RNA sequence: UUAGCUCUGAUAUGUCUGGUAUUCUUGGGUUCAGUGAUAACCAGAACUAUUAGACAUAUCGAAGAUCGA
Number, nucleotide and partner (000 for none) at each position: 001u000002u000003a000004g000005c000006u000007c000008u061009g060010a059011u058012a057013u056014g055015u054016c053017u052018g051019g050020u049021a048022u000023u000024c000025u000026u000027g000028g000029g047030u046031u045032c000033a000034g000035u000036g000037a000038u000039a000040a000041c000042c000043a000044g000045a031046a030047c029048u021049a020050u019051u018052a017053g016054a015055c014056a013057u012058a011059u010060c009061g008062a000063a000064g000065a000066u000067c000068g000069a000
mir-50 microRNA precursor family: a 69-nucleotide RNA sequence from Haemonchus contortus. A reference for the family is Zisoulis et al. (2010), "Comprehensive discovery of endogenous Argonaute binding sites in Caenorhabditis elegans", Nat Struct Mol Biol. Gene Ontology terms of the family: miRNA-mediated post-transcriptional gene silencing and RISC complex. Pairs were carried over by alignment from the consensus structure, which was predicted with RNAalifold. Rfam's curators put it in the seed alignment.